A member of the RNA family "Connexin-43 internal ribosome entry site (IRES)" from Muntiacus reevesi, 205 nucleotides long.
The family's consensus secondary structure is taken from published work.
Rfam describes the family as follows. This family represents the connexin-43 internal ribosome entry site (IRES) which allows cap independent translation during conditions such as heat shock and stress.
For this family Rfam cites "Connexin43 mRNA contains a functional internal ribosome entry site" (Schiavi et al., FEBS Lett, 1999).
The family has 14 seed sequences and 657 matches in Rfam 15.1.
RNA sequence: AGUUUUUAUGAAGUAUCAGCACUUUUCUUUUAUUAGGGGGAAGGAGUGAGGAAAGUACCAUACCACAGCAGACUUUUAAGUUUUAAAUGAAAUAGACAGGUCUGAGUACCGGAACUUACUUUCUCAUUUUACAUGAUCUUGUAGGAAGUUCAGUCACGUGGCAUGCCUACUUCACUUCUUUGAAGACGAAGAGUAUGCUACAAAU
Numbered sequence: 001a002g003u004u005u006u007u008a009u010g011a012a013g014u015a016u017c018a019g020c021a022c023u024u025u026u027c028u029u030u031u032a033u034u035a036g037g038g039g040g041a042a043g044g045a046g047u048g049a050g051g052a053a054a055g056u057a058c059c060a061u062a063c064c065a066c067a068g069c070a071g072a073c074u075u076u077u078a079a080g081u082u083u084u085a086a087a088u089g090a091a092a093u094a095g096a097c098a099g100g101u102c103u104g105a106g107u108a109c110c111g112g113a114a115c116u117u118a119c120u121u122u123c124u125c126a127u128u129u130u131a132c133a134u135g136a137u138c139u140u141g142u143a144g145g146a147a148g149u150u151c152a153g154u155c156a157c158g159u160g161g162c163a164u165g166c167c168u169a170c171u172u173c174a175c176u177u178c179u180u181u182g183a184a185g186a187c188g189a190a191g192a193g194u195a196u197g198c199u200a201c202a203a204a205u
Base pairs, nucleotide, nucleotide: 002020003019004018007015008014009013029148030147031146033144034143035142037140038139039138041134043132048128049127051125053124055122070103071102072101073100074099075098104119106117158201159200160199161198162197163196164195165194166193170191171190172189175185176184177183